Shown here is a 78-nucleotide RNA sequence from Salmonella enterica, a member of the family "Y RNA-like". In Deinococcus radiodurans Rsr is tethered via Y RNA to the exoribonuclease PNPase and channels single-stranded RNA into the PNPase cavity. Pairs were carried over by alignment from the consensus structure, which is taken from published work. A reference for the family is Chen et al. (2013), "An RNA degradation machine sculpted by Ro autoantigen and noncoding RNA", Cell.

RNA sequence: AGCAUGGUACGAAUGCUGGUCAGGAUUACAUCUUUCUUAAUGGCUAUCAUCCUGGCUAUUUAUUUGCCAUGCCACCCU
Numbered sequence: 001a002g003c004a005u006g007g008u009a010c011g012a013a014u015g016c017u018g019g020u021c022a023g024g025a026u027u028a029c030a031u032c033u034u035u036c037u038u039a040a041u042g043g044c045u046a047u048c049a050u051c052c053u054g055g056c057u058a059u060u061u062a063u064u065u066g067c068c069a070u071g072c073c074a075c076c077c078u
Stems, first nucleotide, its partner, number of pairs: 001078002006075001007072003011068001017058010029042003